About this RNA:
A member of the RNA family "Bacillaceae-1 RNA" from Solibacillus silvestris, 67 nucleotides long. The family's RNA type in Rfam is small RNA. The base pairs follow the family's consensus structure, which is taken from published work.
[Rfam]
RNA sequence: AGAUGAGGAACAAAAGCUAAGAACGCCACUUCCUGUGGCAACGCUUUUGUGACCAACAUCCUGUUGG
Numbered sequence: 001a002g003a004u005g006a007g008g009a010a011c012a013a014a015a016g017c018u019a020a021g022a023a024c025g026c027c028a029c030u031u032c033c034u035g036u037g038g039c040a041a042c043g044c045u046u047u048u049g050u051g052a053c054c055a056a057c058a059u060c061c062u063g064u065u066g067g
Base pairs, nucleotide, nucleotide: 011049012048013047014046015045016044017043025039026038027037028036029035053067054066055065056064057063